RNA sequence: AGACGGCGUUCUGGAGACAUCCGCUUGCAGCGGAGGCCGAAGGGGCAAGGCAUAAAUAUGCCCAAUCUCUCAGGCAAAAGGACAGAACGGAUGAA
Numbered sequence: 001a002g003a004c005g006g007c008g009u010u011c012u013g014g015a016g017a018c019a020u021c022c023g024c025u026u027g028c029a030g031c032g033g034a035g036g037c038c039g040a041a042g043g044g045g046c047a048a049g050g051c052a053u054a055a056a057u058a059u060g061c062c063c064a065a066u067c068u069c070u071c072a073g074g075c076a077a078a079a080g081g082a083c084a085g086a087a088c089g090g091a092u093g094a095a
Stems, first nucleotide, its partner, number of pairs: 007089007020034004036075003039071002043069003049062005
The family of this 95-nucleotide RNA from Thermoclostridium caenicola is "Glycine riboswitch aptamer". It scores 68 bits against the family's covariance model.